The record is a 76-nucleotide RNA from Aedes aegypti, which matches "mir-927 microRNA precursor family" in Rfam. Rfam's curators put it in the seed alignment. Taxonomically the source falls in Stegomyia (Eukaryota, Endopterygota, Panorpida, Nematocera). Rfam 15.1 lists 174 matches to the family in 143 species. Rfam links the family to the GO terms miRNA-mediated post-transcriptional gene silencing and RISC complex. The literature on the family includes a 2007 paper in Genome Res by Stark et al., "Systematic discovery and characterization of fly microRNAs using 12 Drosophila genomes".
[Rfam]
RNA sequence: GGUUUGCUUUAGAAUUCCUACGCUUUACCGUGAUUUGUUGAAAGUUUGGCAAAGCGUUUGGGUUCUGAAACGAAAC
Numbered sequence: 001g002g003u004u005u006g007c008u009u010u011a012g013a014a015u016u017c018c019u020a021c022g023c024u025u026u027a028c029c030g031u032g033a034u035u036u037g038u039u040g041a042a043a044g045u046u047u048g049g050c051a052a053a054g055c056g057u058u059u060g061g062g063u064u065c066u067g068a069a070a071c072g073a074a075a076c
Stems, first nucleotide, its partner, number of pairs: 003073002006071001008069006015062003020057007028049002